Rfam assigns this 77-nucleotide sequence from Crocodylus porosus to the family "Mammalian CPEB3 ribozyme". Rfam links the family to the GO term RNA nuclease activity. It scores 46 bits against the family's covariance model. NCBI's taxonomy places the organism under Eukaryota, Opisthokonta, Vertebrata, Euteleostomi, Crocodylus.
[Rfam]
RNA sequence: AGUCAUAAGUAUGAGGCUGAUAGCAGAAGUGCUCACAACGCAGCCUGUUAGAUUCCAAUGAAUCUGUAAAUUCUGCU
Numbered sequence: 001a002g003u004c005a006u007a008a009g010u011a012u013g014a015g016g017c018u019g020a021u022a023g024c025a026g027a028a029g030u031g032c033u034c035a036c037a038a039c040g041c042a043g044c045c046u047g048u049u050a051g052a053u054u055c056c057a058a059u060g061a062a063u064c065u066g067u068a069a070a071u072u073c074u075g076c077u
Stems, first nucleotide, its partner, number of pairs: 015045004022077007029041003049066007